A member of the RNA family "pan motif" from Geobacillus kaustophilus, 103 nucleotides long. The source organism's lineage runs through Bacteria, Bacillati, Caryophanales, Anoxybacillaceae and Geobacillus kaustophilus.

[Rfam]
RNA sequence: AGGGCAGUAUCUUUCGCAAGAAGAACUGCACCGAGGCCGACAGCACGAAUAGGUGAAGGAAAUGAUCUGCCUUGAUCCUUUUUUGAAGGACUAGGACAGAGGG
Numbered sequence: 001a002g003g004g005c006a007g008u009a010u011c012u013u014u015c016g017c018a019a020g021a022a023g024a025a026c027u028g029c030a031c032c033g034a035g036g037c038c039g040a041c042a043g044c045a046c047g048a049a050u051a052g053g054u055g056a057a058g059g060a061a062a063u064g065a066u067c068u069g070c071c072u073u074g075a076u077c078c079u080u081u082u083u084u085g086a087a088g089g090a091c092u093a094g095g096a097c098a099g100a101g102g103g
Stems, first nucleotide, its partner, number of pairs: 002032002004029005010024004067099003070095003074091001076090005